[Rfam]
RNA sequence: UGUAACGGGGCAAGGCUUGCCAGAGAGGACAAUAGCAUGUAUAGGCGUAAGGCGGGGAUUUCGGGAUGUACACGAGUAGAGUCCUCUCUGA
Numbered sequence: 001u002g003u004a005a006c007g008g009g010g011c012a013a014g015g016c017u018u019g020c021c022a023g024a025g026a027g028g029a030c031a032a033u034a035g036c037a038u039g040u041a042u043a044g045g046c047g048u049a050a051g052g053c054g055g056g057g058a059u060u061u062c063g064g065g066a067u068g069u070a071c072a073c074g075a076g077u078a079g080a081g082u083c084c085u086c087u088c089u090g091a
Stems, first nucleotide, its partner, number of pairs: 001012003023088008042078002046074002052069003

This 91-nucleotide RNA from Callipepla squamata belongs to the Rfam family "Retrovirus direct repeat 1 (dr1)".
The base pairs follow the family's consensus structure, which is taken from published work.
Rfam's curators write: This family represents the direct repeat 1 (dr1) element commonly found in the 3' UTR of Avian sarcoma, Rous sarcoma and Avian leukosis viruses (Alpharetroviruses and Avian type C retroviruses). dr1 is required for efficient viral replication and is thought to be involved in genomic RNA packaging although this may not be its only role.